[Rfam]
RNA sequence: UCCGAAAAAGGCAAACUGUCCGAAAGGGCAGGACGCAAAGGCACCGGCCUAAAUCCUACUUUGUAGGACAUGGUAGCGGGUCUGCCGGAC
Numbered sequence: 001u002c003c004g005a006a007a008a009a010g011g012c013a014a015a016c017u018g019u020c021c022g023a024a025a026g027g028g029c030a031g032g033a034c035g036c037a038a039a040g041g042c043a044c045c046g047g048c049c050u051a052a053a054u055c056c057u058a059c060u061u062u063g064u065a066g067g068a069c070a071u072g073g074u075a076g077c078g079g080g081u082c083u084g085c086c087g088g089a090c
Stems, first nucleotide, its partner, number of pairs: 003087002011036002016031006034076001039083004044079003047074003
This 90-nucleotide sequence from Candidatus Desulfofervidus auxilii belongs to the Rfam family "c-di-GMP-I-GGC riboswitch aptamer". NCBI's taxonomy places the organism under Bacteria, Pseudomonadati, Candidatus Desulfofervidia, Candidatus Desulfofervidales, Candidatus Desulfofervidus. Gene Ontology term of the family: cyclic-di-GMP binding. The base pairs follow the family's consensus structure, which is taken from published work.